Background:
The record is a 102-nucleotide RNA sequence from Panicum virgatum, which matches "MIR398 microRNA precursor family" in Rfam. Rfam links the family to the GO terms RISC complex and miRNA-mediated post-transcriptional gene silencing. NCBI's taxonomy places the organism under Eukaryota, Streptophytina, Poaceae, Panicodae, Panicum sect. Hiantes.
[Rfam]
RNA sequence: GGAGUUCCUGCAGGGGCGAGCUGCGAACACAUGCGAAGAGGAUGAAUUACCGCCCCGCCGGUAGUAGGGCAUGUGUUCUCAGGUCGCCCCCGCCGGGCCCUC
Number, nucleotide and partner (000 for none) at each position: 001g000002g000003a000004g000005u000006u000007c096008c095009u000010g000011c092012a000013g090014g089015g000016g087017c086018g085019a084020g000021c000022u000023g080024c000025g078026a077027a076028c075029a074030c073031a072032u071033g070034c069035g000036a000037a000038g000039a000040g000041g000042a000043u000044g000045a000046a000047u000048u000049a000050c000051c000052g000053c000054c000055c000056c000057g000058c000059c000060g000061g000062u000063a000064g000065u000066a000067g000068g000069g034070c033071a032072u031073g030074u029075g028076u027077u026078c025079u000080c023081a000082g000083g000084u019085c018086g017087c016088c000089c014090c013091c000092g011093c000094c000095g008096g007097g000098c000099c000100c000101u000102c000